[Rfam]
RNA sequence: GUUAUCUGAGGUGGUAAAUUUCGUUGCAACCACGCGCCCACUGGGCUAAAAGAGAUGCAGGAGCGGCGACGCCUGCCGGAUAGC
Numbered sequence: 001g002u003u004a005u006c007u008g009a010g011g012u013g014g015u016a017a018a019u020u021u022c023g024u025u026g027c028a029a030c031c032a033c034g035c036g037c038c039c040a041c042u043g044g045g046c047u048a049a050a051a052g053a054g055a056u057g058c059a060g061g062a063g064c065g066g067c068g069a070c071g072c073c074u075g076c077c078g079g080a081u082a083g084c
Stems, first nucleotide, its partner, number of pairs: 001084008011033005023070005035052001036046004057076005
This 84-nucleotide RNA from Marvinbryantia formatexigens belongs to the Rfam family "skipping-rope RNA". It is annotated as a small RNA. Lineage of the source: Bacteria > Bacillota > Lachnospiraceae > Marvinbryantia > Marvinbryantia formatexigens.